[Rfam]
RNA sequence: CAAGCCCUUUUCACUUUACCAUUUGGAUCUCUGUGUCUAUAAUGGUCAUUCAAGAGGGCAACAGAAAUAUCCCCUUAAAACCCAGGCAAAUGCUUAAUAUUUUGCUUGUGUCCUGUCAGAGGAAACAGUA
Numbered sequence: 001c002a003a004g005c006c007c008u009u010u011u012c013a014c015u016u017u018a019c020c021a022u023u024u025g026g027a028u029c030u031c032u033g034u035g036u037c038u039a040u041a042a043u044g045g046u047c048a049u050u051c052a053a054g055a056g057g058g059c060a061a062c063a064g065a066a067a068u069a070u071c072c073c074c075u076u077a078a079a080a081c082c083c084a085g086g087c088a089a090a091u092g093c094u095u096a097a098u099a100u101u102u103u104g105c106u107u108g109u110g111u112c113c114u115g116u117c118a119g120a121g122g123a124a125a126c127a128g129u130a
Stems, first nucleotide, its partner, number of pairs: 034060005043052003070123003074119002083108001084106002088102004

Background:
The record is a 130-nucleotide sequence from Xenopus tropicalis, which matches "Small nucleolar RNA SNORA27" in Rfam. ACA27 is a member of the H/ACA class of snoRNA that guide the sites of modification of uridines to pseudouridines. Taxonomically the source falls in Silurana (Eukaryota, Sarcopterygii, Tetrapoda, Anura). Clan: SNORA27 clan. The pairing is the family consensus, mapped onto this sequence.